[Rfam]
RNA sequence: CUACAAUGAUUAUAACAUUUUUUGUCAACAGCAGUUCACCUAGUGAGUGUUGAAACUUUGGGUAUGAGAGA
Numbered sequence: 001c002u003a004c005a006a007u008g009a010u011u012a013u014a015a016c017a018u019u020u021u022u023u024g025u026c027a028a029c030a031g032c033a034g035u036u037c038a039c040c041u042a043g044u045g046a047g048u049g050u051u052g053a054a055a056c057u058u059u060g061g062g063u064a065u066g067a068g069a070g071a
Stems, first nucleotide, its partner, number of pairs: 002070001004068001008026003
Small nucleolar RNA SNORD56: a 71-nucleotide RNA sequence from Phyllostomus discolor. The match comes from Rfam's covariance-model search (81 bits). Pairs were carried over by alignment from the consensus structure, which was predicted with PFOLD. On this family, see Galardi et al., Mol Cell Biol 2002: "Purified box C/D snoRNPs are able to reproduce site-specific 2'-O-methylation of target RNA in vitro".